Rfam assigns this 155-nucleotide RNA sequence from Populus deltoides to the family "MIR168 microRNA precursor family".
The match comes from Rfam's covariance-model search (119 bits).
RNA sequence: UUACCGGCGGUCUCUAAUUCGCUUGGUGCAGGUCGGGAACUGAUUCAGCGAUUUGAUUGCCAGAUGGCUAAACACGAUUGGCUGUGAGGCAAAUUAUAAAAAGAAAGAGAAUUGGAUCCCGCCUUGCAUCAACUGAAUCGGAGACCGCGGUGAAG
Numbered sequence: 001u002u003a004c005c006g007g008c009g010g011u012c013u014c015u016a017a018u019u020c021g022c023u024u025g026g027u028g029c030a031g032g033u034c035g036g037g038a039a040c041u042g043a044u045u046c047a048g049c050g051a052u053u054u055g056a057u058u059g060c061c062a063g064a065u066g067g068c069u070a071a072a073c074a075c076g077a078u079u080g081g082c083u084g085u086g087a088g089g090c091a092a093a094u095u096a097u098a099a100a101a102a103g104a105a106a107g108a109g110a111a112u113u114g115g116a117u118c119c120c121g122c123c124u125u126g127c128a129u130c131a132a133c134u135g136a137a138u139c140g141g142a143g144a145c146c147g148c149g150g151u152g153a154a155g
Stems, first nucleotide, its partner, number of pairs: 013142002017138004023132010034121005040115007
The family has 10 seed sequences and 518 matches in Rfam 15.1.
Its family is annotated with RISC complex and miRNA-mediated post-transcriptional gene silencing in the Gene Ontology.